[Rfam]
RNA sequence: GGAAAAUAUCUCUUUUACUAUUUGUCCAGUAGGUUUCCUUUAAAAGGAAGCCCAU
Numbered sequence: 001g002g003a004a005a006a007u008a009u010c011u012c013u014u015u016u017a018c019u020a021u022u023u024g025u026c027c028a029g030u031a032g033g034u035u036u037c038c039u040u041u042a043a044a045a046g047g048a049a050g051c052c053c054a055u
Stems, first nucleotide, its partner, number of pairs: 032052008